[Rfam]
RNA sequence: GUGUAAGGAGGACAUGCAAAUCAAUUGGUUGAAGAUUUUCUCAGUAGAUAAAAAUCGGUAAACUCAAAGUUGUUAGAAUUGCAAGAUUCACCUGUAAACAAUACGUGUAGAGUAAUUGUUAGUGAUAACUCGUAUCGGAAAAUAGGGAAAGGUUAUAGAAGGAUGGAGUUUCUAUAAAGCAUUUACCCUAUCUGUUAUCACCUAACGCAAGUUAUCCACCAUCCAAGCGUCGAAACUGUAUGAAAACAAGGUUUUAGUUUCACCACAUCACGUUCACCUUUUGCUUUACAUGUAUCGCGAAAUGUAAACACUCAUUCAACCAAUUGAUGUCUUCCCGUUAACAAGGCCGAGCUUAAAUUUAAGCUCGGUUUUUUCUUUUAGGCAAUAAAAUAUAUUUGUAUCAAAUAAUCAUAUGUGUUAUAUUCAAGGUGCACAUUCUAUUUUAUCUUCUUUUAAAGGAGGGAAUGCUAUGCG
Numbered sequence: 001g002u003g004u005a006a007g008g009a010g011g012a013c014a015u016g017c018a019a020a021u022c023a024a025u026u027g028g029u030u031g032a033a034g035a036u037u038u039u040c041u042c043a044g045u046a047g048a049u050a051a052a053a054a055u056c057g058g059u060a061a062a063c064u065c066a067a068a069g070u071u072g073u074u075a076g077a078a079u080u081g082c083a084a085g086a087u088u089c090a091c092c093u094g095u096a097a098a099c100a101a102u103a104c105g106u107g108u109a110g111a112g113u114a115a116u117u118g119u120u121a122g123u124g125a126u127a128a129c130u131c132g133u134a135u136c137g138g139a140a141a142a143u144a145g146g147g148a149a150a151g152g153u154u155a156u157a158g159a160a161g162g163a164u165g166g167a168g169u170u171u172c173u174a175u176a177a178a179g180c181a182u183u184u185a186c187c188c189u190a191u192c193u194g195u196u197a198u199c200a201c202c203u204a205a206c207g208c209a210a211g212u213u214a215u216c217c218a219c220c221a222u223c224c225a226a227g228c229g230u231c232g233a234a235a236c237u238g239u240a241u242g243a244a245a246a247c248a249a250g251g252u253u254u255u256a257g258u259u260u261c262a263c264c265a266c267a268u269c270a271c272g273u274u275c276a277c278c279u280u281u282u283g284c285u286u287u288a289c290a291u292g293u294a295u296c297g298c299g300a301a302a303u304g305u306a307a308a309c310a311c312u313c314a315u316u317c318a319a320c321c322a323a324u325u326g327a328u329g330u331c332u333u334c335c336c337g338u339u340a341a342c343a344a345g346g347c348c349g350a351g352c353u354u355a356a357a358u359u360u361a362a363g364c365u366c367g368g369u370u371u372u373u374u375c376u377u378u379u380a381g382g383c384a385a386u387a388a389a390a391u392a393u394a395u396u397u398g399u400a401u402c403a404a405a406u407a408a409u410c411a412u413a414u415g416u417g418u419u420a421u422a423u424u425c426a427a428g429g430u431g432c433a434c435a436u437u438c439u440a441u442u443u444u445a446u447c448u449u450c451u452u453u454u455a456a457a458g459g460a461g462g463g464a465a466u467g468c469u470a471u472g473c474g
Base pairs, nucleotide, nucleotide: 001473002472003471004470005469007335008334009333010332011331012330013329014328021327022326023325024324025323026322027321028320029319030318031317032316033315034056035055036054037053038052039051041048042047061074062073063072076089077088078087079086080085101295102294103293104292105291106290107289108288109287110286111285112284113283114282115281118278122201123200124199125198126197127196128195129194130139131138142191143190144189145188146187147186148184149183150182153177154176155175156174157173158172159171160170161169205230206229207228208227232261233260234259235258236257237256238255346369347368348367349366350365351364352363353362354361355360370464371463372462373461374460375459376458377457378456379455380454381453382452385446386445387444388443389442390441391440392439393407394406395405396404397403398402413436414435415434416433417432418431